[Rfam]
RNA sequence: UCCUCCGUAAGGUAGAAUCUGAAGGAAGACGGCGGCAAACCUUCGGCCCGAGGGUCACGAACUCCAAUUGAGGCUAGCAACAGUUGGGUGAGUCUGCAGAACAAGACAAAACCCUUGCUACCGAAGGCUGUUGAAAGUAAAUGGAGCGGGUACACUCAUCAAUCGGCUAUC
Numbered sequence: 001u002c003c004u005c006c007g008u009a010a011g012g013u014a015g016a017a018u019c020u021g022a023a024g025g026a027a028g029a030c031g032g033c034g035g036c037a038a039a040c041c042u043u044c045g046g047c048c049c050g051a052g053g054g055u056c057a058c059g060a061a062c063u064c065c066a067a068u069u070g071a072g073g074c075u076a077g078c079a080a081c082a083g084u085u086g087g088g089u090g091a092g093u094c095u096g097c098a099g100a101a102c103a104a105g106a107c108a109a110a111a112c113c114c115u116u117g118c119u120a121c122c123g124a125a126g127g128c129u130g131u132u133g134a135a136a137g138u139a140a141a142u143g144g145a146g147c148g149g150g151u152a153c154a155c156u157c158a159u160c161a162a163u164c165g166g167c168u169a170u171c
Base pairs, nucleotide, nucleotide: 001016002015005012006011031171032170035167036166043158045156046151047150048149049148050147062146063145064144065143066142073138074137075136078133079132080131081130082129083128086114087113088112089111092107093106094105095104
RNA: Group II catalytic intron D1-D4-3